The family of this 600-nucleotide part of an RNA from Candidatus Desulfofervidus auxilii is "Bacterial large subunit ribosomal RNA".
RNA sequence: GGGCAGACGGUGGAUGCCUUGGCAGCAGGAGGCGAUGAAGGGCGUGGCUACCUGCGAUAAGCUCCGGGGAGCUGGAAGCAAGCUUUGAUCCGGAGAUGCCCGAAUGGGAAAACCCAUCUGGCUUAAUAGCCAGAUAUCUACAGCUGAAUACAUAGGCUGUAGAGGCGAACGGGGGGAAGUGAAACAUCUCAGUACCCCUAGGAAAAGAAAGUAAAAACGAUUCCCUGAGUAGCGGCGAGCGAAAAGGGAACAGCCCAAACCAGGUAGGUGUUAAAGCUUGCGGGCGUUGCCUAUCUGGGGUAGUGGGGCCUUACUGGGCGAGGCCGCAAACUCGCCGGGAAGUUACAAAUCUGCACUCUAGCCGAACAGGUUGGAAAACCUGGCCAUAGAGAGUGAUAGCCUCGUAGGCGAAAGGGUAGCAGACUUCCUGAGUAAGGUUCCCAAGUACUGUGGGACACGAGAAAUCCCGCAGGAAUCUGGGAGGACCAUCUCCUAAGGCUAAAUACUCCCUGCUGACCGAUAGCGAACCAGUACCGUGAGGGAAAGGUGAAAAGAACCCCGGGAGGGGAGUGAAAUAGAACCUGAAACCGUUUGCCUACA
Number, nucleotide and partner (000 for none) at each position: 001g597002g596003g595004c594005a593006g592007a591008c590009g589010g588011u000012g000013g000014a000015u000016g582017c547018c546019u000020u000021g518022g517023c515024a514025g513026c512027a511028g510029g509030a507031g506032g166033c165034g000035a000036u000037g000038a000039a000040g101041g100042g099043c056044g055045u054046g000047g000048c000049u000050a000051c000052c000053u000054g045055c044056g043057a000058u000059a000060a000061g000062c095063u094064c093065c092066g091067g090068g089069g000070a000071g083072c082073u081074g000075g000076a000077a000078g000079c000080a000081a073082g072083c071084u000085u000086u000087g000088a000089u068090c067091c066092g065093g064094a063095g062096a000097u000098g000099c042100c041101c040102g000103a000104a000105u000106g115107g114108g113109a000110a000111a000112a000113c108114c107115c106116a135117u134118c133119u132120g131121g130122c129123u000124u000125a000126a000127u000128a000129g122130c121131c120132a119133g118134a117135u116136a000137u163138c162139u161140a160141c159142a158143g157144c156145u155146g000147a000148a000149u000150a000151c000152a000153u000154a000155g145156g144157c143158u142159g141160u140161a139162g138163a137164g000165g033166c032167g000168a000169a000170c201171g199172g198173g197174g196175g195176g000177a000178a000179g000180u000181g188182a187183a000184a000185c000186a000187u182188c181189u000190c000191a000192g000193u000194a000195c175196c174197c173198c172199u171200a000201g170202g000203a000204a000205a000206a000207g000208a000209a000210a000211g218212u217213a000214a000215a000216a000217a212218c211219g000220a000221u503222u249223c248224c247225c246226u245227g000228a000229g000230u000231a000232g240233c239234g000235g000236c000237g000238a000239g233240c232241g000242a000243a000244a000245a226246g225247g224248g223249a222250a000251c000252a500253g499254c498255c497256c000257a000258a000259a000260c298261c297262a296263g295264g294265u293266a292267g291268g290269u289270g288271u000272u000273a000274a000275a000276g000277c000278u000279u000280g000281c000282g000283g000284g000285c000286g000287u000288u270289g269290c268291c267292u266293a265294u264295c263296u262297g261298g260299g000300g000301u000302a000303g000304u000305g442306g441307g440308g000309c000310c436311u435312u434313a433314c432315u000316g000317g000318g000319c000320g000321a000322g000323g000324c000325c000326g000327c000328a000329a000330a000331c000332u000333c000334g000335c000336c000337g000338g000339g000340a000341a000342g000343u000344u000345a000346c000347a426348a425349a000350u423351c422352u421353g420354c419355a417356c416357u415358c414359u413360a000361g409362c408363c407364g000365a000366a000367c382368a381369g380370g379371u378372u000373g000374g000375a000376a000377a000378a371379c370380c369381u368382g367383g000384c000385c389386a000387u000388a000389g385390a000391g403392a402393g401394u000395g000396a000397u000398a000399g000400c000401c393402u392403c391404g000405u000406a000407g363408g362409c361410g000411a000412a000413a359414g358415g357416g356417u355418a000419g354420c353421a352422g351423a350424c000425u348426u347427c000428c000429u000430g000431a000432g314433u313434a312435a311436g310437g000438u000439u000440c307441c306442c305443a000444a000445g000446u000447a000448c472449u471450g470451u469452g468453g467454g466455a465456c000457a000458c000459g000460a000461g000462a000463a000464a000465u455466c454467c453468c452469g451470c450471a449472g448473g000474a000475a000476u000477c000478u000479g494480g493481g492482a491483g490484g000485a000486c000487c000488a000489u000490c483491u482492c481493c480494u479495a000496a000497g255498g254499c253500u252501a000502a000503a221504u000505a000506c031507u030508c000509c029510c028511u027512g026513c025514u024515g023516a000517c022518c021519g000520a000521u000522a000523g000524c000525g000526a000527a000528c000529c000530a000531g000532u000533a000534c541535c540536g000537u000538g000539a000540g535541g534542g000543a000544a000545a000546g018547g017548u000549g000550a000551a000552a000553a000554g000555a000556a000557c568558c567559c566560c565561g000562g000563g000564a000565g560566g559567g558568g557569a000570g000571u000572g000573a000574a000575a000576u000577a000578g000579a000580a000581c000582c016583u000584g000585a000586a000587a000588c010589c009590g008591u007592u006593u005594g004595c003596c002597u001598a000599c000600a000